A member of the RNA family "Mason-Pfizer monkey virus packaging signal" from Nannospalax galili, 279 nucleotides long. Taxonomically the source falls in Nannospalax (Eukaryota, Euarchontoglires, Myomorpha, Spalacinae). The family's consensus secondary structure was predicted with PFOLD. A search with the family's covariance model found it, with a score of 186 bits. It is annotated as a cis-regulatory element. On this family, see Mustafa et al., Virus Res 2004: "Mutational analysis of the predicted secondary RNA structure of the Mason-Pfizer monkey virus packaging signal". Rfam 15.1 lists 2,921 matches to the family in 53 species. About the family: This family represents a group of sequences that are related to the Mason-Pfizer monkey virus (MPMV) packaging signal. The packaging signal is located in the 5' UTR and is required for specific RNA encapsidation.

[Rfam]
RNA sequence: UGGUGCCCAACGUGGGGCUGGAUACUGGGGGCACAUCGUGAGGGAGACGAUGGAAAAAAAGGAGUGCACUCACUAAACCUCAAGGAAUUCGGAAACACGCCGUGGGAGCCUGCUGCGACCGAACCGAAGGUAAGUUGUGCCGUCCGAUCAUGAGGCAAAAAUUGAGCCAGCAUCAGAUUUAUGUCAAGCAAUUGAGAGAGGCUCUAAAGACACGAGGAGUAAAGGUUAGGACUGAGGAUUUAUUUCAUUUCUUUGAUUUUGUAAAGGACAUUUGUCCCU
Numbered sequence: 001u002g003g004u005g006c007c008c009a010a011c012g013u014g015g016g017g018c019u020g021g022a023u024a025c026u027g028g029g030g031g032c033a034c035a036u037c038g039u040g041a042g043g044g045a046g047a048c049g050a051u052g053g054a055a056a057a058a059a060a061g062g063a064g065u066g067c068a069c070u071c072a073c074u075a076a077a078c079c080u081c082a083a084g085g086a087a088u089u090c091g092g093a094a095a096c097a098c099g100c101c102g103u104g105g106g107a108g109c110c111u112g113c114u115g116c117g118a119c120c121g122a123a124c125c126g127a128a129g130g131u132a133a134g135u136u137g138u139g140c141c142g143u144c145c146g147a148u149c150a151u152g153a154g155g156c157a158a159a160a161a162u163u164g165a166g167c168c169a170g171c172a173u174c175a176g177a178u179u180u181a182u183g184u185c186a187a188g189c190a191a192u193u194g195a196g197a198g199a200g201g202c203u204c205u206a207a208a209g210a211c212a213c214g215a216g217g218a219g220u221a222a223a224g225g226u227u228a229g230g231a232c233u234g235a236g237g238a239u240u241u242a243u244u245u246c247a248u249u250u251c252u253u254u255g256a257u258u259u260u261g262u263a264a265a266g267g268a269c270a271u272u273u274g275u276c277c278c279u
Stems, first nucleotide, its partner, number of pairs: 006030003012025003036050004089130002098121002101117005138157003143154001145152002163206002166202003213255007223241005264279001266277004
Dot-bracket structure: .....(((...(((........)))..))).....((((.......))))......................................((.......((.(((((.......)))))..)).......)).......(((..(.((....)).)))).....((.(((...............................)))..))......(((((((...(((((.........))))).......)))))))........(.((((....)))).)